[Rfam]
RNA: glmS glucosamine-6-phosphate activated ribozyme aptamer
Nucleotides: 154
Stems, first nucleotide, its partner, number of pairs: 020036007045077005054065004078092001097144007114127005
Number, partner (000 for none) and nucleotide at each position: 001000a002000g003000g004000a005000a006000c007000u008000c009000u010000u011000a012000a013000g014000c015000g016000c017000c018000a019000g020036a021035a022034c023033c024032g025031c026030a027000u028000u029000c030026u031025g032024c033023g034022g035021u036020u037000g038000a039000c040000g041000a042000g043000g044000u045077g046076g047075g048074a049073g050000g051000c052000g053000a054065u055064c056063g057062a058000a059000a060000a061000u062057u063056c064055g065054g066000c067000g068000g069000a070000u071000g072000c073049c074048u075047c076046u077045c078092c079000g080000u081000c082000a083000c084000g085000c086000u087000u088000c089000c090000a091000g092078g093000c094000g095000a096000a097144g098143c099142u100141g101140u102139c103138u104000g105000c106000u107000g108000a109000a110000a111000a112000c113000u114127u115126c116125c117124g118123g119000g120000c121000a122000a123118c124117c125116g126115g127114a128000u129000c130000g131000a132000c133000a134000a135000a136000g137000g138103g139102g140101a141100c142099a143098g144097c145000g146000g147000g148000a149000a150000g151000u152000u153000g154000a